[Rfam]
Nucleotides: 057
Stems, first nucleotide, its partner, number of pairs: 018037005024031002
Number, partner (000 for none) and nucleotide at each position: 001000u002000g003000c004000a005000a006000g007000u008000a009000u010000u011000u012000u013000g014000c015000g016000g017000u018037u019036a020035a021034g022033a023000a024031g025030u026000a027000a028000a029000u030025g031024u032000c033022u034021c035020u036019u037018g038000u039000a040000c041000a042000u043000a044000u045000g046000g047000c048000g049000u050000a051000u052000u053000a054000a055000u056000c057000u
The record is a 57-nucleotide RNA sequence from Nicotiana sylvestris, which matches "Plastid-rps18 3UTR RNA" in Rfam. The family's consensus secondary structure was predicted with LocARNA. Lineage of the source: Eukaryota > Viridiplantae > Spermatophyta > Mesangiospermae > Nicotiana. Rfam's curators write: Plastid rps18 is a non-coding RNA (ncRNA) present in plastids. It was identified as a short stem-loop motif in the 3 prime untranslate region (3UTR) of rps18 gene. The family's RNA type in Rfam is cis-regulatory element.